[Rfam]
RNA sequence: AACCGGGUGCGCAGCACAGAGCGAACUAUUCUUUCGCCUUUUACUAAAGAAUACCGUGCGCUGGGUACACUCACCGGAAUACCACAUUUUUUGGAUUGCCCCUCACAGGGCCC
Dot-bracket structure: ..((((.(((.((((.((........((((((((...........))))))))...)).)))).)))......))))....................((((......))))..
Shown here is a 113-nucleotide RNA sequence from Ceratodon purpureus, a member of the family "U5 spliceosomal RNA". The base pairs follow the family's consensus structure, which is taken from published work. Rfam describes the family as follows. U5 RNA is a component of both types of known spliceosome. Gene Ontology terms of the family: spliceosomal tri-snRNP complex assembly and U5 snRNP. NCBI's taxonomy places the organism under Eukaryota, Viridiplantae, Embryophyta, Bryophyta, Ceratodon. A search with the family's covariance model found it, with a score of 85 bits.